[Rfam]
Notes
Shown here is a 186-nucleotide sequence from Paraliobacillus sp. PM-2, a member of the family "Lysine riboswitch aptamer". A search with the family's covariance model found it, with a score of 124 bits. Rfam describes the family as follows. Riboswitches are metabolite binding domains within certain messenger RNAs that serve as precision sensors for their corresponding targets. Taxonomically the source falls in Paraliobacillus (Bacteria, Bacillati, Bacillota, Bacilli). Gene Ontology term of the family: lysine biosynthetic process.
RNA sequence: AGUGAGUAUAGAGGUGCAAAUCUCAAGAGUAAGCUUCAUAAAGCGGAUGAUCGCUGAUGAUUGUAGCUGAAAGGGGAAUUUGCCGAAGUGGAUAAAAGUUCAUCAUUUUAUUCACUGGUGCUGUUAUUGAAUAAAUACAGUACUGUCAUAUAGUACAAAGUUGCUAUAUGGAGGGCUAUCUCACGC
Numbered sequence: 001a002g003u004g005a006g007u008a009u010a011g012a013g014g015u016g017c018a019a020a021u022c023u024c025a026a027g028a029g030u031a032a033g034c035u036u037c038a039u040a041a042a043g044c045g046g047a048u049g050a051u052c053g054c055u056g057a058u059g060a061u062u063g064u065a066g067c068u069g070a071a072a073g074g075g076g077a078a079u080u081u082g083c084c085g086a087a088g089u090g091g092a093u094a095a096a097a098g099u100u101c102a103u104c105a106u107u108u109u110a111u112u113c114a115c116u117g118g119u120g121c122u123g124u125u126a127u128u129g130a131a132u133a134a135a136u137a138c139a140g141u142a143c144u145g146u147c148a149u150a151u152a153g154u155a156c157a158a159a160g161u162u163g164c165u166a167u168a169u170g171g172a173g174g175g176c177u178a179u180c181u182c183a184c185g186c
Stems, first nucleotide, its partner, number of pairs: 006181001008179004016083006023076002032068004037063002087116011117144007125137004146171009
Dot-bracket structure: .....(.((((....((((((.((.......((((.((.......................)).))))......)).))))))...(((((((((((........)))))))))))(((((((.((((.....))))))))))).(((((((((........)))))))))....)))).).....